A member of the RNA family "MIR1883 microRNA precursor family" from Oryza sativa, 116 nucleotides long.
RNA sequence: ACCCGUCACUGGUAUCUAGUCACCUGUGACGGGCCGAGAAUGGAACCCGUCAAAGGGACACCUCUGACGGGUUCCAUUCUCGAUCCGUCACAGGUGACUAGAUGCCUGUGACGGCC
Numbered sequence: 001a002c003c004c005g006u007c008a009c010u011g012g013u014a015u016c017u018a019g020u021c022a023c024c025u026g027u028g029a030c031g032g033g034c035c036g037a038g039a040a041u042g043g044a045a046c047c048c049g050u051c052a053a054a055g056g057g058a059c060a061c062c063u064c065u066g067a068c069g070g071g072u073u074c075c076a077u078u079c080u081c082g083a084u085c086c087g088u089c090a091c092a093g094g095u096g097a098c099u100a101g102a103u104g105c106c107u108g109u110g111a112c113g114g115c116c
Base pairs, nucleotide, nucleotide: 003114004113005112006111007110008109009108011106012105013104014103015102016101017100018099019098020097021096022095023094024093025092026091027090028089029088030087031086032085033084038079039078041076042075043074044073045072046071047070048069049068050067051066052065054063055062
Notes:
The family has 2 seed sequences and 3 matches in Rfam 15.1. The base pairs follow the family's consensus structure, which was predicted with RNAalifold.